[Rfam]
The family of this 103-nucleotide RNA sequence from Clostridium sp. AM33-3 is "THF (Tetrahydrofolate) riboswitch aptamer".
It scores 84 bits against the family's covariance model.
From the family's description: Tetrahydrofolate (THF) riboswitch was first reported for Ames et al. as an RNA motif in 5' untranslated (5'-UTR)regions of folate transport and biosynthesis genes in Firmicutes genomes.
The organism belongs to Clostridium, within Bacteria.
RNA sequence: AGCAGAGUAGAUCUGUGUGCGUUAAGUGCCAGCUGGACAGGGAGUUGCCGGCAGGACGAAGAAGCCGCCUGGUUUCGCGGUACACGGAUCGCAUCCCGCUGCG
Numbered sequence: 001a002g003c004a005g006a007g008u009a010g011a012u013c014u015g016u017g018u019g020c021g022u023u024a025a026g027u028g029c030c031a032g033c034u035g036g037a038c039a040g041g042g043a044g045u046u047g048c049c050g051g052c053a054g055g056a057c058g059a060a061g062a063a064g065c066c067g068c069c070u071g072g073u074u075u076c077g078c079g080g081u082a083c084a085c086g087g088a089u090c091g092c093a094u095c096c097c098g099c100u101g102c103g
Base pairs, nucleotide, nucleotide: 002102003101004100005099010090011089012088013087014086015085016084017083018082019081020079021078022077026057027056029055030054032052033051034050035049036048040096041095042094044092061076062075063074064073